[Rfam]
RNA sequence: ACACUUACCUGGACGGGGUCUACGGGUGAUCAGGAAGGCUCAUGGCCUAGGUAGGUGGCUUCCAUUGCACUUAGAAGGUGUGCCUGCCUAACGUCCUCCCAAAGCGGGAGCGCGUACGUCACAAUUUGGGGCAGCGGGGGCCAGUGUUCACGUCGCCCCUGU
Number, nucleotide and partner (000 for none) at each position: 001a000002c000003a000004c000005u000006u000007a000008c000009c000010u000011g000012g120013a119014c118015g117016g048017g047018g046019u045020c044021u000022a000023c000024g041025g040026g039027u038028g000029a000030u000031c000032a000033g000034g000035a000036a000037g000038g027039c026040u025041c024042a000043u000044g020045g019046c018047c017048u016049a089050g088051g087052u000053a000054g000055g083056u082057g081058g000059c000060u078061u077062c000063c074064a000065u000066u000067g000068c000069a000070c000071u000072u000073a000074g063075a000076a000077g061078g060079u000080g000081u057082g056083c055084c000085u000086g000087c051088c050089u049090a000091a115092c114093g113094u000095c000096c108097u000098c107099c106100c000101a000102a000103a000104g000105c000106g099107g098108g096109a000110g000111c000112g000113c093114g092115u091116a000117c015118g014119u013120c012121a000122c000123a000124a000125u000126u000127u000128g000129g000130g000131g000132c000133a000134g000135c161136g160137g159138g158139g157140g000141c000142c000143a000144g153145u152146g151147u000148u000149c000150a000151c146152g145153u144154c000155g000156c000157c139158c138159c137160u136161g135162u000

The record is a 162-nucleotide RNA sequence from Carnegiea gigantea, which matches "U1 spliceosomal RNA" in Rfam. Lineage of the source: Eukaryota > Pentapetalae > Cactaceae > Echinocereeae > Carnegiea. The match comes from Rfam's covariance-model search (103 bits). Pairs were carried over by alignment from the consensus structure, which is taken from published work.